Shown here is a 197-nucleotide RNA sequence from Paenibacillus sp. oral taxon 786, a member of the family "c-di-AMP riboswitch aptamer (ydaO/yuaA leader)". The match comes from Rfam's covariance-model search (62 bits). Its family is annotated with cyclic-di-AMP binding and regulation of gene expression in the Gene Ontology.

[Rfam]
RNA sequence: ACAAUGAAACUGCCGAAUUCCCACGCACCCGGGAAGCGGGGGACCCACCAUAGGGUGAAUUGAUUUUCGCUAUAAAGGUAACAACUCCCAAACUAAUAACUACCAUUUCAAUCAAGGUUACUUACCUCUAUAGCAAAUCAUAGGGAACCUUCAACCGAAUCCAUAAGCUAACCUCGUAGGCCUUGGAAGGAGUAAGA
Numbered sequence: 001a002c003a004a005u006g007a008a009a010c011u012g013c014c015g016a017a018u019u020c021c022c023a024c025g026c027a028c029c030c031g032g033g034a035a036g037c038g039g040g041g042g043a044c045c046c047a048c049c050a051u052a053g054g055g056u057g058a059a060u061u062g063a064u065u066u067u068c069g070c071u072a073u074a075a076a077g078g079u080a081a082c083a084a085c086u087c088c089c090a091a092a093c094u095a096a097u098a099a100c101u102a103c104c105a106u107u108u109c110a111a112u113c114a115a116g117g118u119u120a121c122u123u124a125c126c127u128c129u130a131u132a133g134c135a136a137a138u139c140a141u142a143g144g145g146a147a148c149c150u151u152c153a154a155c156c157g158a159a160u161c162c163a164u165a166a167g168c169u170a171a172c173c174u175c176g177u178a179g180g181c182c183u184u185g186g187a188a189g190g191a192g193u194a195a196g197a
Stems, first nucleotide, its partner, number of pairs: 012181003018035005036177006047051001053162003061140006143156002